RNA sequence: AAGCUCCUUAGAUGUGAUUUGGUUUAGUGUUGGCAGACAUACCGGGCAUCCCCUCCUAUCCCUGGCACAGCCCGGUAGUUAGACCCCGAACUUUCCCUCCCCAUAUGAAGUUCGGGGUUUUUUUUGCCUGAUU
Numbered sequence: 001a002a003g004c005u006c007c008u009u010a011g012a013u014g015u016g017a018u019u020u021g022g023u024u025u026a027g028u029g030u031u032g033g034c035a036g037a038c039a040u041a042c043c044g045g046g047c048a049u050c051c052c053c054u055c056c057u058a059u060c061c062c063u064g065g066c067a068c069a070g071c072c073c074g075g076u077a078g079u080u081a082g083a084c085c086c087c088g089a090a091c092u093u094u095c096c097c098u099c100c101c102c103a104u105a106u107g108a109a110g111u112u113c114g115g116g117g118u119u120u121u122u123u124u125u126g127c128c129u130g131a132u133u
Base pairs, nucleotide, nucleotide: 040077041076042075043074044073045072046071047070081121082120083119084117085116086115087114088113089112090111091110092109093108094107
Shown here is a 133-nucleotide sequence from Halopseudomonas yangmingensis, a member of the family "Pseudomon-1/ErsA RNA". Taxonomically the source falls in Halopseudomonas (Bacteria, Pseudomonadati, Gammaproteobacteria, Pseudomonadaceae). The match comes from Rfam's covariance-model search (82 bits). By type it is a small RNA. Functions to regulate the AlgC enzyme. Based on this information, the new name ErsA for the RNA was adopted. Negatively regulates major porin oprD expression responsible for uptake of carbapenem antibiotics, by base pairing with oprD 5'UTR (leading to increased bacterial resistance to meropenem).Positively regulates amrZ mRNA and contributes to biofilm formation and motility. Pairs were carried over by alignment from the consensus structure, which is taken from published work. Gene Ontology terms of the family: response to antibiotic, sRNA-mediated gene silencing and positive regulation of translation, ncRNA-mediated.